Record summary
The family of this 109-nucleotide RNA from Insulibacter thermoxylanivorax is "TPP riboswitch aptamer (THI element)". The match comes from Rfam's covariance-model search (80 bits).
RNA sequence: UUCAACCACUAGGGGAGCCGUUAGAACGGCUGAGAGAAGGAUAGUGCUCCUGAUACCCUUAUAACCUGAUCUGGGUGAUGCCAGCGUAGGAAAGUGGUGCUCGACUUGA
Numbered sequence: 001u002u003c004a005a006c007c008a009c010u011a012g013g014g015g016a017g018c019c020g021u022u023a024g025a026a027c028g029g030c031u032g033a034g035a036g037a038a039g040g041a042u043a044g045u046g047c048u049c050c051u052g053a054u055a056c057c058c059u060u061a062u063a064a065c066c067u068g069a070u071c072u073g074g075g076u077g078a079u080g081c082c083a084g085c086g087u088a089g090g091a092a093a094g095u096g097g098u099g100c101u102c103g104a105c106u107u108g109a
Base pairs, nucleotide, nucleotide: 006097007096008095009094010093011059012058013057014056017030018029019028020027021026038051039050040049041048065090066089067088068087071084072083073082074081